[Rfam]
Nucleotides: 113
Base pairs, nucleotide, nucleotide: 008023009022010021011020012019059111060110061109062108063107064106065105066104067103068102069101074096075095077094078093079092080091081090
Number, partner (000 for none) and nucleotide at each position: 001000u002000u003000g004000a005000a006000g007000c008023u009022c010021c011020a012019u013000c014000u015000a016000c017000a018000a019012a020011u021010g022009g023008a024000u025000a026000a027000g028000a029000c030000c031000c032000g033000g034000u035000c036000u037000u038000a039000g040000u041000g042000u043000a044000u045000a046000c047000g048000a049000g050000u051000u052000u053000a054000a055000a056000a057000a058000a059111a060110a061109a062108g063107g064106a065105g066104c067103a068102a069101u070000a071000a072000u073000c074096c075095c076000c077094c078093u079092c080091u081090u082000g083000u084000u085000u086000u087000a088000u089000c090081a091080a092079g093078a094077g095075g096074g097000c098000g099000c100000c101069a102068u103067u104066g105065c106064u107063u108062c109061u110060u111059u112000u113000u